[Rfam]
RNA sequence: AGAAUAUAAGAAUCCGUCUCUUAAUUUUUAACUAAAAAAACUAAGAACCGGUUCUUAACUUUUUUAGUUAAAAGUUAAGAGGUUGAUUUUUAUAUUCU
Numbered sequence: 001a002g003a004a005u006a007u008a009a010g011a012a013u014c015c016g017u018c019u020c021u022u023a024a025u026u027u028u029u030a031a032c033u034a035a036a037a038a039a040a041c042u043a044a045g046a047a048c049c050g051g052u053u054c055u056u057a058a059c060u061u062u063u064u065u066a067g068u069u070a071a072a073a074g075u076u077a078a079g080a081g082g083u084u085g086a087u088u089u090u091u092a093u094a095u096u097c098u
Base pairs, nucleotide, nucleotide: 001098002097003096004095005094006093007092008091009090010089011088012087013086014085016083017082018081019080020079021078022077023076024075025074026073027072028071029070030069031068032067033066034065035064036063037062038061039060042057043056044055045054046053047052

MIR9563 microRNA precursor family: a 98-nucleotide sequence from Brassica carinata. The family's consensus secondary structure was predicted with RNAalifold. The family has 2 seed sequences and 5,832 matches in Rfam 15.1. Its family is annotated with RISC complex and miRNA-mediated post-transcriptional gene silencing in the Gene Ontology.